[Rfam]
RNA sequence: AAACGUUCAACUCGCGAAGGCGAGCCGCAAGUCGACUUGAGCCAUGGAACGGGGACUUAAG
Numbered sequence: 001a002a003a004c005g006u007u008c009a010a011c012u013c014g015c016g017a018a019g020g021c022g023a024g025c026c027g028c029a030a031g032u033c034g035a036c037u038u039g040a041g042c043c044a045u046g047g048a049a050c051g052g053g054g055a056c057u058u059a060a061g
Base pairs, nucleotide, nucleotide: 004051005050006049007048008047011024012023013022014021036061037060038059039058040057041056042054043053
RNA: Glutamine-II riboswitch aptamer